The family of this 307-nucleotide RNA sequence from Actinidia chinensis is "Plant signal recognition particle RNA". A search with the family's covariance model found it, with a score of 232 bits. It is annotated as a non-coding RNA gene. The base pairs follow the family's consensus structure, which is taken from published work.
RNA sequence: GCCGAGCUUGUUAAUGUGAGCUUGUAACUCAAAUGAGGGCAUUAAAUUGAUGGAACGUGGGUCCGGCCCAAAGAGUUGGGCCUGUGGUUGCUAAUUGCUAGCCCGCCCUAUCCAAGCUGGGAGAUGGGCCAUGUGGCCCAGUCGAAGGAUUGGGCUUCGUGGGCUUUAUAGCGGAGGGCACCGCGUCAGGCUGGCCUCACAGAGCAGCGUUAACCUCCCGCUCUCGGCGGUGGAAGGAUAACGGGCCGGUUCAAUCUGGGCUCAAUAAACACUCUGAUGGGCCGUACACAAUCGAACCAUCACUUUU
Numbered sequence: 001g002c003c004g005a006g007c008u009u010g011u012u013a014a015u016g017u018g019a020g021c022u023u024g025u026a027a028c029u030c031a032a033a034u035g036a037g038g039g040c041a042u043u044a045a046a047u048u049g050a051u052g053g054a055a056c057g058u059g060g061g062u063c064c065g066g067c068c069c070a071a072a073g074a075g076u077u078g079g080g081c082c083u084g085u086g087g088u089u090g091c092u093a094a095u096u097g098c099u100a101g102c103c104c105g106c107c108c109u110a111u112c113c114a115a116g117c118u119g120g121g122a123g124a125u126g127g128g129c130c131a132u133g134u135g136g137c138c139c140a141g142u143c144g145a146a147g148g149a150u151u152g153g154g155c156u157u158c159g160u161g162g163g164c165u166u167u168a169u170a171g172c173g174g175a176g177g178g179c180a181c182c183g184c185g186u187c188a189g190g191c192u193g194g195c196c197u198c199a200c201a202g203a204g205c206a207g208c209g210u211u212a213a214c215c216u217c218c219c220g221c222u223c224u225c226g227g228c229g230g231u232g233g234a235a236g237g238a239u240a241a242c243g244g245g246c247c248g249g250u251u252c253a254a255u256c257u258g259g260g261c262u263c264a265a266u267a268a269a270c271a272c273u274c275u276g277a278u279g280g281g282c283c284g285u286a287c288a289c290a291a292u293c294g295a296a297c298c299a300u301c302a303c304u305u306u307u
Stems, first nucleotide, its partner, number of pairs: 001040003004023008028037003044306003048302006056294002058291001060289001061287002064284003068280003072275005077264008086256001088254003093250001098249002101246005107237002111234004116228008126165002129162005135156009166171001173218005183210004191202003
Dot-bracket structure: (((((((((((....))))))))....(((....))))))...(((.((((((..(((.(((.(((.(((.(((((((((((((.(.(((..(....((.(((((.((..((((.((((((((..((.(((((.(((((((((....))))))))).))))).))(....).(((((.....((((....(((......)))....))))...)))))..))))))))..)))).))....))))).))).))).)))))))))......)))))..))).))).)).).).))..)))))).))).